[Rfam]
RNA sequence: UCCGUCCCGUCAGGAGAGAGUCCGCGCCCCUCAGGGCCGGGCCGCCGAAGGCGCAGGCAGCAGCCGAACGCUCAGGCAAAAGGACUGGCGACACGCC
Numbered sequence: 001u002c003c004g005u006c007c008c009g010u011c012a013g014g015a016g017a018g019a020g021u022c023c024g025c026g027c028c029c030c031u032c033a034g035g036g037c038c039g040g041g042c043c044g045c046c047g048a049a050g051g052c053g054c055a056g057g058c059a060g061c062a063g064c065c066g067a068a069c070g071c072u073c074a075g076g077c078a079a080a081a082g083g084a085c086u087g088g089c090g091a092c093a094c095g096c097c
Stems, first nucleotide, its partner, number of pairs: 008090006020042004044077003047073002051071003057064002
RNA: Glycine riboswitch aptamer
Organism: Diaphorobacter sp. J5-51